RNA sequence: GGACGGUGAAGAUCGUAUCUAUUGGUCUCGUUCGUCGUAACUGGCAAAUUGUUUUUGCCUUGCCGACCAUCCUGAUAUAUCACCACCCAUAUUCCGAGUCC
Numbered sequence: 001g002g003a004c005g006g007u008g009a010a011g012a013u014c015g016u017a018u019c020u021a022u023u024g025g026u027c028u029c030g031u032u033c034g035u036c037g038u039a040a041c042u043g044g045c046a047a048a049u050u051g052u053u054u055u056u057g058c059c060u061u062g063c064c065g066a067c068c069a070u071c072c073u074g075a076u077a078u079a080u081c082a083c084c085a086c087c088c089a090u091a092u093u094c095c096g097a098g099u100c101c
Stems, first nucleotide, its partner, number of pairs: 001101004046061002048056001
The family of this 101-nucleotide RNA from Oryza sativa is "Small nucleolar RNA Z43". For this family Rfam cites "The high diversity of snoRNAs in plants: identification and comparative study of 120 snoRNA genes from Oryza sativa" (Chen et al., Nucleic Acids Res, 2003). Gene Ontology terms of the family: nucleolus and RNA processing. The organism belongs to Oryza sativa, within Eukaryota. Rfam's curators put it in the seed alignment.